[Rfam]
RNA sequence: GUAUUAAUGCUAAUCGUGAUAGGGGUUUUAAUUCGCUAUUGACUCCUACAUGUUAGCAUUAUUAU
Numbered sequence: 001g002u003a004u005u006a007a008u009g010c011u012a013a014u015c016g017u018g019a020u021a022g023g024g025g026u027u028u029u030a031a032u033u034c035g036c037u038a039u040u041g042a043c044u045c046c047u048a049c050a051u052g053u054u055a056g057c058a059u060u061a062u063u064a065u
Stems, first nucleotide, its partner, number of pairs: 005061010020048004025043003